RNA sequence: CUGGAGUGAUGAGGUUUAGCCAAAUCAUAUGUUAAUGUGCUCCACUGGGCAGAUUGGCUUAGAGCUUGACGUGUUUGCCAGA
Number, nucleotide and partner (000 for none) at each position: 001c081002u080003g079004g078005a000006g000007u000008g000009a000010u000011g000012a000013g000014g000015u000016u000017u000018a000019g000020c000021c000022a000023a000024a000025u000026c000027a000028u000029a000030u000031g000032u000033u000034a000035a000036u000037g000038u000039g000040c000041u000042c000043c000044a000045c000046u000047g000048g000049g000050c000051a000052g000053a000054u000055u000056g000057g000058c000059u000060u000061a000062g000063a000064g000065c000066u000067u000068g000069a000070c000071g000072u000073g000074u000075u000076u000077g000078c004079c003080a002081g001082a000
RNA: small nucleolar RNA snoR127
Organism: Kalanchoe fedtschenkoi